[Rfam]
The family of this 190-nucleotide RNA sequence from Antrostomus carolinensis is "U2 spliceosomal RNA". Rfam 15.1 lists 71,512 matches to the family in 2,642 species. Pairs were carried over by alignment from the consensus structure, which is taken from published work. The organism belongs to Antrostomus, within Eukaryota.
RNA sequence: UUUGCUUCUUGACCUUUUGGCAAAGAUCAAGUGUAGCAUAUGUUUUUAUCAGUUUAAUAUCUGUUAUGUCCUCAACUUGAGGAUUUUAUAUUAAAUGAGUUUGGGGAUUGUGAAAUGUACUAGGAGUUUACGUCAUCCUCUCCAUGCAUGAAACUGGAUAUUGCUGUGUUUCUAGAAUGGUGUGAAAGAA
Numbered sequence: 001u002u003u004g005c006u007u008c009u010u011g012a013c014c015u016u017u018u019g020g021c022a023a024a025g026a027u028c029a030a031g032u033g034u035a036g037c038a039u040a041u042g043u044u045u046u047u048a049u050c051a052g053u054u055u056a057a058u059a060u061c062u063g064u065u066a067u068g069u070c071c072u073c074a075a076c077u078u079g080a081g082g083a084u085u086u087u088a089u090a091u092u093a094a095a096u097g098a099g100u101u102u103g104g105g106g107a108u109u110g111u112g113a114a115a116u117g118u119a120c121u122a123g124g125a126g127u128u129u130a131c132g133u134c135a136u137c138c139u140c141u142c143c144a145u146g147c148a149u150g151a152a153a154c155u156g157g158a159u160a161u162u163g164c165u166g167u168g169u170u171u172c173u174a175g176a177a178u179g180g181u182g183u184g185a186a187a188g189a190a
Stems, first nucleotide, its partner, number of pairs: 007026003013020002047066002050063003068084007112142002115139001117137001123134002126131001146183004151178001154175005